Shown here is a 32-nucleotide RNA sequence, a member of the family "S4-Flavobacteria ribosomal protein leader".
RNA sequence: GAUUAUCGAAGGAAAGACCUUAAUUCGUAAUC
Numbered sequence: 001g002a003u004u005a006u007c008g009a010a011g012g013a014a015a016g017a018c019c020u021u022a023a024u025u026c027g028u029a030a031u032c
Base pairs, nucleotide, nucleotide: 001032002031003030004029005028006027008026009021010020011019012018
Rfam's curators put it in the seed alignment.
The family's RNA type in Rfam is cis-regulatory leader.
Its Rfam clan is "Ribosomal Protein S4 Leader clan".